[Rfam]
Nucleotides: 063
Base pairs, nucleotide, nucleotide: 001054002053003052004051005050006049007048008047009046
Number, partner (000 for none) and nucleotide at each position: 001054u002053c003052u004051g005050u006049c007048a008047a009046c010000g011000g012000u013000a014000a015000a016000u017000c018000g019000c020000a021000a022000c023000a024000c025000u026000u027000a028000a029000a030000g031000g032000u033000g034000a035000g036000a037000a038000u039000u040000u041000a042000a043000g044000g045000a046009g047008u048007u049006g050005a051004c052003a053002g054001a055000c056000u057000c058000a059000c060000c061000u062000c063000u